[Rfam]
Nucleotides: 096
Stems, first nucleotide, its partner, number of pairs: 002095007013041001015040003021031003025071001027069002042063004047059002067088001072085004
Number, partner (000 for none) and nucleotide at each position: 001000c002095u003094u004093u005092u006091a007090u008089c009000c010000a011000g012000a013041g014000a015040g016039g017038c018000g019000g020000a021031g022030g023029g024000a025071c026000u027069g028068g029023c030022c031021c032000u033000a034000u035000g036000a037000a038017g039016c040015c041013c042063g043062g044061c045060a046000a047059c048058c049000g050000a051000u052000a053000a054000c055000g056000a057000c058048g059047g060045u061044g062043c063042c064000a065000a066000u067088u068028c069027c070000u071025g072085c073084g074083g075082a076000u077000u078000g079000a080000u081000u082075u083074c084073c085072g086000a087000g088067a089008g090007a091006u092005a093004a094003a095002g096000a

The record is a 96-nucleotide RNA sequence from Megasphaera cerevisiae, which matches "SAM riboswitch aptamer (S box leader)" in Rfam. It scores 83 bits against the family's covariance model.